[Rfam]
RNA sequence: AAAGGAGAAAUCCAAAGGGAUAGCAUGAUCCCAAAUAUUUUGUGAAGGUAAAUAGAAAUUUAACACUAAAGUUUUAGGAUCAAUGCGAUCCCUUUGGAUGCUUCCUU
Numbered sequence: 001a002a003a004g005g006a007g008a009a010a011u012c013c014a015a016a017g018g019g020a021u022a023g024c025a026u027g028a029u030c031c032c033a034a035a036u037a038u039u040u041u042g043u044g045a046a047g048g049u050a051a052a053u054a055g056a057a058a059u060u061u062a063a064c065a066c067u068a069a070a071g072u073u074u075u076a077g078g079a080u081c082a083a084u085g086c087g088a089u090c091c092c093u094u095u096g097g098a099u100g101c102u103u104c105c106u107u
Base pairs, nucleotide, nucleotide: 002107003106004105005104006103010099011098012097013096014095015094016093017092018091019090020089021088023086024085025084026082027081028080029079030078031077035074
This 107-nucleotide RNA sequence from Lupinus albus belongs to the Rfam family "mir-393 microRNA precursor family". The literature on the family includes a 2012 paper in J Plant Physiol by Kruszka et al., "Role of microRNAs and other sRNAs of plants in their changing environments". A search with the family's covariance model found it, with a score of 67 bits. Gene Ontology terms of the family: RISC complex and miRNA-mediated post-transcriptional gene silencing. The pairing is the family consensus, mapped onto this sequence.